[Rfam]
RNA sequence: UUCUAGCUCCAAUACUGUAAUAACUUAAAUAACUAGUCAGGUCUGGAAAGAAGCAGCUAAAUUAAGUGAAUACAGGUAUUGCGAGCUAGAAUAU
Numbered sequence: 001u002u003c004u005a006g007c008u009c010c011a012a013u014a015c016u017g018u019a020a021u022a023a024c025u026u027a028a029a030u031a032a033c034u035a036g037u038c039a040g041g042u043c044u045g046g047a048a049a050g051a052a053g054c055a056g057c058u059a060a061a062u063u064a065a066g067u068g069a070a071u072a073c074a075g076g077u078a079u080u081g082c083g084a085g086c087u088a089g090a091a092u093a094u
Stems, first nucleotide, its partner, number of pairs: 003089005008081001011080002013076001015075005023067006034059004042051003
Dot-bracket structure: ..((((((..(((.(((((...((((((.....((((....(((....)))....))))..))))))...))))))..)))...))))).....
Source information: Shown here is a 94-nucleotide RNA from Buchnera aphidicola, a member of the family "Bacterial small signal recognition particle RNA". Taxonomically the source falls in Buchnera aphidicola (Bacteria, Pseudomonadati, Enterobacterales, Erwiniaceae). By type it is a non-coding RNA gene. Its Rfam clan is "SRP clan".